The record is an 89-nucleotide sequence from endosymbiont 'TC1' of Trimyema compressum, which matches "Glycine riboswitch aptamer" in Rfam. About the family: This family represents the bacterial glycine riboswitch. NCBI's taxonomy places the organism under Bacteria, Bacillati, Bacillota.
RNA sequence: CGAACUCUGGAGAGAUCUCGCAUGUGAGACACCAAAGAGAAUAAGCGCUUAGAUAGUGCAAAAGUCUUCAGGUAAAAGGACAGGGAAAA
Numbered sequence: 001c002g003a004a005c006u007c008u009g010g011a012g013a014g015a016u017c018u019c020g021c022a023u024g025u026g027a028g029a030c031a032c033c034a035a036a037g038a039g040a041a042u043a044a045g046c047g048c049u050u051a052g053a054u055a056g057u058g059c060a061a062a063a064g065u066c067u068u069c070a071g072g073u074a075a076a077a078g079g080a081c082a083g084g085g086a087a088a089a
Base pairs, nucleotide, nucleotide: 005085006084007083008082009081016029017028018027019026031073032072033071035068038067039066040065045059046058047057048056049055
Dot-bracket structure: ....(((((......((((......)))).(((.(..(((....(((((.....))))).....))))..))).......)))))....